The record is a 201-nucleotide RNA sequence from Bacillus sp. FJAT-27986, which matches "Lysine riboswitch aptamer" in Rfam.
RNA sequence: AGAUGAGGUAGAGGUCGCAGAUUUUAUUAGUAAACUAAAAAGAGAGCCGGAAAGCUUGCUGACUUUAGUUGAAAGGAAAAUCUGCCGAAGCGUUCUUUUUUUCCGAAGAGAGCAGCUGGGACUGUAUCCGAAUAGGUGCAGGACUGUCAUGGAAUAUAUACAUCGCGAUAUGUAUAUAUUCCAUGGAGAACUAUCCAUUUA
Numbered sequence: 001a002g003a004u005g006a007g008g009u010a011g012a013g014g015u016c017g018c019a020g021a022u023u024u025u026a027u028u029a030g031u032a033a034a035c036u037a038a039a040a041a042g043a044g045a046g047c048c049g050g051a052a053a054g055c056u057u058g059c060u061g062a063c064u065u066u067a068g069u070u071g072a073a074a075g076g077a078a079a080a081u082c083u084g085c086c087g088a089a090g091c092g093u094u095c096u097u098u099u100u101u102u103c104c105g106a107a108g109a110g111a112g113c114a115g116c117u118g119g120g121a122c123u124g125u126a127u128c129c130g131a132a133u134a135g136g137u138g139c140a141g142g143a144c145u146g147u148c149a150u151g152g153a154a155u156a157u158a159u160a161c162a163u164c165g166c167g168a169u170a171u172g173u174a175u176a177u178a179u180u181c182c183a184u185g186g187a188g189a190a191c192u193a194u195c196c197a198u199u200u201a
Stems, first nucleotide, its partner, number of pairs: 007195005017085009033070007089117003092113008118145002122141007147186016
It scores 122 bits against the family's covariance model. Taxonomically the source falls in Bacillus (Bacteria, Bacillota, Bacilli, Caryophanales).